This 358-nucleotide RNA from Maricaulis maris belongs to the Rfam family "Alphaproteobacteria transfer-messenger RNA". On this family, see Williams and Bartel, RNA 1996: "Phylogenetic analysis of tmRNA secondary structure". Bacterial tmRNA, also known as 10Sa RNA or SsrA, is named for its dual tRNA and mRNA-like properties. Its role is to liberate the mRNA from a stalled ribosome. To accomplish this part of the tmRNA is used as a reading frame that ends in a translation stop signal. The broken mRNA is replaced in the ribosome by the tmRNA and translation of the tmRNA leads to addition of a proteolysis tag to the incomplete protein enabling recognition by a protease. It is annotated as a non-coding RNA gene.
RNA sequence: CCCCUUCAAUGCACACCCGCGAUCCCCUAUAUUGAGGGGGUCGGCUUGCCGACUAUGGCGAUAAACGCGCUCGUAAUAACCGGACCGGACCCGGGGGCAGUACCCGGCGGCUCCACCAUAACUGUUCUGCGUUGGCGGACAUGCUUGGGGCCGAAACAGGAUCGACGGACGGGUAAAGGGGAUGGCUUUCGCCGGGGUGAGGCCCCUUACAGGCUCAUUUUCAGAGUUGCCAACGACAACUUUGCUGAAGAGGUCGCUCUCGCUGCGUAGUCAGCGCGGGUAAUCUCGCACUAAACUCCUAUUCCCUUUAGCCGGAAUAGGCGGGGCCCGGAGGCGCCUGGCAACAGAAGCCUCCACU
Numbered sequence: 001c002c003c004c005u006u007c008a009a010u011g012c013a014c015a016c017c018c019g020c021g022a023u024c025c026c027c028u029a030u031a032u033u034g035a036g037g038g039g040g041u042c043g044g045c046u047u048g049c050c051g052a053c054u055a056u057g058g059c060g061a062u063a064a065a066c067g068c069g070c071u072c073g074u075a076a077u078a079a080c081c082g083g084a085c086c087g088g089a090c091c092c093g094g095g096g097g098c099a100g101u102a103c104c105c106g107g108c109g110g111c112u113c114c115a116c117c118a119u120a121a122c123u124g125u126u127c128u129g130c131g132u133u134g135g136c137g138g139a140c141a142u143g144c145u146u147g148g149g150g151c152c153g154a155a156a157c158a159g160g161a162u163c164g165a166c167g168g169a170c171g172g173g174u175a176a177a178g179g180g181g182a183u184g185g186c187u188u189u190c191g192c193c194g195g196g197g198u199g200a201g202g203c204c205c206c207u208u209a210c211a212g213g214c215u216c217a218u219u220u221u222c223a224g225a226g227u228u229g230c231c232a233a234c235g236a237c238a239a240c241u242u243u244g245c246u247g248a249a250g251a252g253g254u255c256g257c258u259c260u261c262g263c264u265g266c267g268u269a270g271u272c273a274g275c276g277c278g279g280g281u282a283a284u285c286u287c288g289c290a291c292u293a294a295a296c297u298c299c300u301a302u303u304c305c306c307u308u309u310a311g312c313c314g315g316a317a318u319a320g321g322c323g324g325g326g327c328c329c330g331g332a333g334g335c336g337c338c339u340g341g342c343a344a345c346a347g348a349a350g351c352c353u354c355c356a357c358u
Base pairs, nucleotide, nucleotide: 040053041052042051043050044049057193058192059191060190061189067186068185070181071180072179081171082170085168086167087166091107092106093105094104095103108153109152110151111150112149113148114147194206195205196204197203198217199216200215201214324339325338326337327336330355331354332353333352334351335350